[Rfam]
RNA sequence: AGUAAGAAAAUAAAAUAACCUCAUAUAAUUUCGGGGAUAUGGCCCGAUAGUCUCUACCCAUCACCGUAAAUGAUGGACUAUGAGGGAAGAUUAUACGUUU
Numbered sequence: 001a002g003u004a005a006g007a008a009a010a011u012a013a014a015a016u017a018a019c020c021u022c023a024u025a026u027a028a029u030u031u032c033g034g035g036g037a038u039a040u041g042g043c044c045c046g047a048u049a050g051u052c053u054c055u056a057c058c059c060a061u062c063a064c065c066g067u068a069a070a071u072g073a074u075g076g077a078c079u080a081u082g083a084g085g086g087a088a089g090a091u092u093a094u095a096c097g098u099u100u
Base pairs, nucleotide, nucleotide: 019085020084021083022082023081024080025079029049031047032046033045034044035043058076059075060074061073062072063071